The family of this 178-nucleotide RNA sequence from Alkaliphilus sp. B6464 is "Lysine riboswitch aptamer".
It scores 122 bits against the family's covariance model.
Rfam describes the family as follows. Riboswitches are metabolite binding domains within certain messenger RNAs that serve as precision sensors for their corresponding targets.
RNA sequence: AUUAAAGGUAGAGGCGCAAUCUUUAAUAGUACUAUUGUGGAGGUAAGCACGAUGAUACGAUAGGAAAGGAAAGAUUGCCGAAGUAUAUGGUUUAAGCUAAAGGGCCAUAUAACUGGUCUUGCAUAUAAUAUAUGUAAGAUUGUCACAAAUAACCUAUUUGUGGGGAGCUAUCAUUCAA
Numbered sequence: 001a002u003u004a005a006a007g008g009u010a011g012a013g014g015c016g017c018a019a020u021c022u023u024u025a026a027u028a029g030u031a032c033u034a035u036u037g038u039g040g041a042g043g044u045a046a047g048c049a050c051g052a053u054g055a056u057a058c059g060a061u062a063g064g065a066a067a068g069g070a071a072a073g074a075u076u077g078c079c080g081a082a083g084u085a086u087a088u089g090g091u092u093u094a095a096g097c098u099a100a101a102g103g104g105c106c107a108u109a110u111a112a113c114u115g116g117u118c119u120u121g122c123a124u125a126u127a128a129u130a131u132a133u134g135u136a137a138g139a140u141u142g143u144c145a146c147a148a149a150u151a152a153c154c155u156a157u158u159u160g161u162g163g164g165g166a167g168c169u170a171u172c173a174u175u176c177a178a
Stems, first nucleotide, its partner, number of pairs: 007172005016078009032063008082114003085110008115141011143163007